The family of this 107-nucleotide sequence from Salinisphaera japonica is "Guanidine-I riboswitch aptamer". A reference for the family is Reiss et al. (2017), "Structural Basis for Ligand Binding to the Guanidine-I Riboswitch", Structure. This family represents a conserved RNA structure found upstream of the ykkC and yxkD genes in Bacillus subtilis and related genes in other bacteria. Taxonomically the source falls in Salinisphaera japonica (Bacteria, Pseudomonadota, Gammaproteobacteria, Salinisphaerales).

RNA sequence: ACAAUGGAUGGCUAGGGUUCCGCUGGCAGUCGCCGGGCCUGGACCGAGAGCGAUCGACCGGACGCGAGACAGCGGCGGUUACACGGCGGGAUAAAAGCCCGGGAGGU
Numbered sequence: 001a002c003a004a005u006g007g008a009u010g011g012c013u014a015g016g017g018u019u020c021c022g023c024u025g026g027c028a029g030u031c032g033c034c035g036g037g038c039c040u041g042g043a044c045c046g047a048g049a050g051c052g053a054u055c056g057a058c059c060g061g062a063c064g065c066g067a068g069a070c071a072g073c074g075g076c077g078g079u080u081a082c083a084c085g086g087c088g089g090g091a092u093a094a095a096a097g098c099c100c101g102g103g104a105g106g107u
Base pairs, nucleotide, nucleotide: 007055008054009053011051012050015045016044020042021041022039023036024035025034026033027032056080057079058078059077060076063075082102084105088100089099090098